Source information
The record is an 80-nucleotide sequence from Pseudomonas jinjuensis, which matches "Pseudomonas sRNA P31" in Rfam. It is annotated as a small RNA. NCBI's taxonomy places the organism under Bacteria, Pseudomonadati, Gammaproteobacteria, Pseudomonadaceae, Pseudomonas. For this family Rfam cites "Identification of 17 Pseudomonas aeruginosa sRNAs and prediction of sRNA-encoding genes in 10 diverse pathogens using the bioinformatic tool sRNAPredict2" (Livny et al., Nucleic Acids Res, 2006).
RNA sequence: AGAAGACCUCCCGUAAAUCAAGCCUGGCUGGGCGUACGCAGGUUGUAAAAAAGCGGGAUGACAAAGAAAAGUCAUCCCGC
Numbered sequence: 001a002g003a004a005g006a007c008c009u010c011c012c013g014u015a016a017a018u019c020a021a022g023c024c025u026g027g028c029u030g031g032g033c034g035u036a037c038g039c040a041g042g043u044u045g046u047a048a049a050a051a052a053g054c055g056g057g058a059u060g061a062c063a064a065a066g067a068a069a070a071g072u073c074a075u076c077c078c079g080c
Base pairs, nucleotide, nucleotide: 005044007042008041009040022033023032024031025030053080054079055078056077059074060073061072062071